[Rfam]
RNA sequence: AUAAAGGAGCGAUAAAUUCUUUCUUGUUCUAUCAAGAGGGCAUUAUUGCUCCUUUUUUUAA
Numbered sequence: 001a002u003a004a005a006g007g008a009g010c011g012a013u014a015a016a017u018u019c020u021u022u023c024u025u026g027u028u029c030u031a032u033c034a035a036g037a038g039g040g041c042a043u044u045a046u047u048g049c050u051c052c053u054u055u056u057u058u059u060a061a
Base pairs, nucleotide, nucleotide: 001057003055004054005053006052007051008050009049010048011047012046013045014044015043017040018039019038022037023036024035025034026033
Shown here is a 61-nucleotide RNA from Olea europaea, a member of the family "Plastid-psbA-2 3UTR RNA". About the family: Plastid psbA-2 is a non-coding RNA (ncRNA) present in plastids. It was identified in inverted repeat sequences in the 3 prime untranslate region (3UTR) of photosystem II quinone-binding protein (psbA). Pairs were carried over by alignment from the consensus structure, which was predicted with LocARNA. The family is grouped with related families in Rfam's "Plastid-psbA 3UTR RNA clan". The organism belongs to Olea europaea, within Eukaryota.